mir-383 microRNA precursor family: a 73-nucleotide RNA sequence from Eptesicus fuscus.
The base pairs follow the family's consensus structure, which was predicted with RNAalifold.
A reference for the family is Murchison et al. (2008), "Conservation of small RNA pathways in platypus", Genome Res.

RNA sequence: CUCCUCAGAUCAGAAGGUGAUUGUGGCUUUGGGUAGAUAUUAAUCAGCCACAGCACUACCUGGUCAGAAAGAG
Numbered sequence: 001c002u003c004c005u006c007a008g009a010u011c012a013g014a015a016g017g018u019g020a021u022u023g024u025g026g027c028u029u030u031g032g033g034u035a036g037a038u039a040u041u042a043a044u045c046a047g048c049c050a051c052a053g054c055a056c057u058a059c060c061u062g063g064u065c066a067g068a069a070a071g072a073g
Stems, first nucleotide, its partner, number of pairs: 005068002008065006016057004021053008029043004